Rfam assigns this 132-nucleotide sequence from Erinaceus europaeus to the family "Small nucleolar RNA SNORA68". The match comes from Rfam's covariance-model search (83 bits). The base pairs follow the family's consensus structure, which was predicted with PFOLD. A reference for the family is Ganot et al. (1997), "The family of box ACA small nucleolar RNAs is defined by an evolutionarily conserved secondary structure and ubiquitous sequence elements essential for RNA accumulation", Genes Dev. U68 is a member of the H/ACA class of small nucleolar RNAs (snoRNAs) which act as guides in the the modification of uridines to pseudouridines. Gene Ontology terms of the family: RNA processing and nucleolus. Rfam 15.1 lists 1,079 matches to the family in 643 species. Lineage of the source: Eukaryota > Sarcopterygii > Dipnotetrapodomorpha > Mammalia > Erinaceus.
RNA sequence: CCAGCACCCAAAUCCAAGGGCUUAGUAUUAAUGUAAUAGUGGUUCAAACACAGGUGCUAACAGCAAAGGGGGCCCCAUCGCUUUUGGAGGACUGUCUGCGCCCUUCAAAGUGAAUUUAGAGGUUCUACACAC
Numbered sequence: 001c002c003a004g005c006a007c008c009c010a011a012a013u014c015c016a017a018g019g020g021c022u023u024a025g026u027a028u029u030a031a032u033g034u035a036a037u038a039g040u041g042g043u044u045c046a047a048a049c050a051c052a053g054g055u056g057c058u059a060a061c062a063g064c065a066a067a068g069g070g071g072g073c074c075c076c077a078u079c080g081c082u083u084u085u086g087g088a089g090g091a092c093u094g095u096c097u098g099c100g101c102c103c104u105u106c107a108a109a110g111u112g113a114a115u116u117u118a119g120a121g122g123u124u125c126u127a128c129a130c131a132c
Stems, first nucleotide, its partner, number of pairs: 003058006019044003023041002026038004070125005076119001082110009092100001